The family of this 122-nucleotide RNA from Staphylococcus aureus is "S. aureus tsr26 small RNA".
It is one of the family's seed sequences.
NCBI's taxonomy places the organism under Bacteria, Bacillota, Staphylococcaceae, Staphylococcus, Staphylococcus aureus subsp. aureus USA300.
The base pairs follow the family's consensus structure, which was predicted with RNAfold.
For this family Rfam cites "Genome-wide Annotation, Identification, and Global Transcriptomic Analysis of Regulatory or Small RNA Gene Expression in Staphylococcus aureus" (Carroll et al., MBio, 2016).
RNA sequence: GCUUAUUAUUUUCAUAAACGAUUUUCUAAAAUCCUUUACGAAAUUUUUAAUAAAAAUCACAUCCCAGUUAUUUUUUUAACACUUAUCUUUUGAUAAGUGCUUUUUUUGUUUUAAAGCCUCCA
Numbered sequence: 001g002c003u004u005a006u007u008a009u010u011u012u013c014a015u016a017a018a019c020g021a022u023u024u025u026c027u028a029a030a031a032u033c034c035u036u037u038a039c040g041a042a043a044u045u046u047u048u049a050a051u052a053a054a055a056a057u058c059a060c061a062u063c064c065c066a067g068u069u070a071u072u073u074u075u076u077u078a079a080c081a082c083u084u085a086u087c088u089u090u091u092g093a094u095a096a097g098u099g100c101u102u103u104u105u106u107u108g109u110u111u112u113a114a115a116g117c118c119u120c121c122a
Base pairs, nucleotide, nucleotide: 001117002116003115004114010043011042012041013040015038016037017036018035020033021032022031023030024029052075053074054073055072056071057070059068060067080099081098082097083096084095085094086093087092
Dot-bracket structure: ((((.....((((.((((.(((((....))))).)))).))))........((((((.((......)).))))))....((((((((....))))))))..............)))).....